[Rfam]
RNA sequence: AUUUCUCUGAGAUGUUCGUUAACGGGGAAAGUCCCCUGAGCCGAUAUUUCAUACAUUAUAGAAUGUGGUGCUCCGUAGUCUGGUGUGCAUGCUCGGUCCAGCCGAGAAGCCUUAAAGCUGCGACGCUGCGUUCACCUUGAACCGAGGGUUCAAGGGUUACUACCUGUAACGGCAUCUUGGAGAAUCU
Numbered sequence: 001a002u003u004u005c006u007c008u009g010a011g012a013u014g015u016u017c018g019u020u021a022a023c024g025g026g027g028a029a030a031g032u033c034c035c036c037u038g039a040g041c042c043g044a045u046a047u048u049u050c051a052u053a054c055a056u057u058a059u060a061g062a063a064u065g066u067g068g069u070g071c072u073c074c075g076u077a078g079u080c081u082g083g084u085g086u087g088c089a090u091g092c093u094c095g096g097u098c099c100a101g102c103c104g105a106g107a108a109g110c111c112u113u114a115a116a117g118c119u120g121c122g123a124c125g126c127u128g129c130g131u132u133c134a135c136c137u138u139g140a141a142c143c144g145a146g147g148g149u150u151c152a153a154g155g156g157u158u159a160c161u162a163c164c165u166g167u168a169a170c171g172g173c174a175u176c177u178u179g180g181a182g183a184a185u186c187u
Base pairs, nucleotide, nucleotide: 003184004183005182006181007180008179009178010177011176012175013174014173015172017171018170019169033156034155035154037152038151039150040149041148042147061133062132063131065129066128067127068126069125070124072123074122075121076120077119078118080117081116087110088109092106093105094104095103096102
RNA: 6S / SsrS RNA
Organism: Photorhabdus laumondii